[Rfam]
RNA: U11 spliceosomal RNA
Nucleotides: 136
Stems, first nucleotide, its partner, number of pairs: 008086005013026005027057007059080006104134004109130005115125002
Number, partner (000 for none) and nucleotide at each position: 001000a002000a003000a004000a005000a006000g007000g008086g009085c010084a011083u012082c013026u014025g015024c016023c017022a018000u019000a020000a021000a022017u023016g024015g025014c026013a027057c028056a029055g030054c031053u032052g033051u034000g035000g036000a037000u038000g039000g040000g041000u042000u043000u044000c045000u046000c047000u048000g049000a050000a051033a052032c053031a054030g055029c056028u057027g058000u059080g060079g061078a062077a063076u064075c065000a066000c067000u068000a069000u070000c071000a072000a073000g074000a075064g076063a077062u078061u079060u080059c081000u082012g083011a084010u085009g086008c087000a088000c089000a090000a091000u092000u093000u094000u095000u096000a097000g098000g099000a100000u101000u102000c103000g104134g105133g106132g107131u108000u109130g110129c111128u112127a113126a114000u115125g116124a117000u118000u119000g120000a121000u122000u123000c124116u125115c126113u127112u128111g129110g130109c131107g132106c133105c134104c135000c136000a